[Rfam]
RNA sequence: UUGCACAUAUUCUCGCUGUUCUGAUUCUGUAAUAAUCAGGACAGGCUAAACAUUUGCUAUAUUAAGACCAUGCAUGUGUUCCCAGAUCUAGUUCUUGCCUUACGUCUGGUUUUAUAAAUACUGGUGAUAAGG
Numbered sequence: 001u002u003g004c005a006c007a008u009a010u011u012c013u014c015g016c017u018g019u020u021c022u023g024a025u026u027c028u029g030u031a032a033u034a035a036u037c038a039g040g041a042c043a044g045g046c047u048a049a050a051c052a053u054u055u056g057c058u059a060u061a062u063u064a065a066g067a068c069c070a071u072g073c074a075u076g077u078g079u080u081c082c083c084a085g086a087u088c089u090a091g092u093u094c095u096u097g098c099c100u101u102a103c104g105u106c107u108g109g110u111u112u113u114a115u116a117a118a119u120a121c122u123g124g125u126g127a128u129a130a131g132g
Stems, first nucleotide, its partner, number of pairs: 003057003016044011067125004072121001082109006089102003
The record is a 132-nucleotide sequence from Tupaia belangeri, which matches "Small nucleolar RNA SNORA72" in Rfam. Its family is annotated with RNA processing and nucleolus in the Gene Ontology. U72 is a member of the H/ACA class of snoRNAs. The snoRNA gene is located in intron 4 of the ribosomal L30 protein gene in human, mouse and chicken. Taxonomically the source falls in Tupaia (Eukaryota, Eumetazoa, Vertebrata, Gnathostomata). On this family, see Ganot et al., Genes Dev 1997: "The family of box ACA small nucleolar RNAs is defined by an evolutionarily conserved secondary structure and ubiquitous sequence elements essential for RNA accumulation".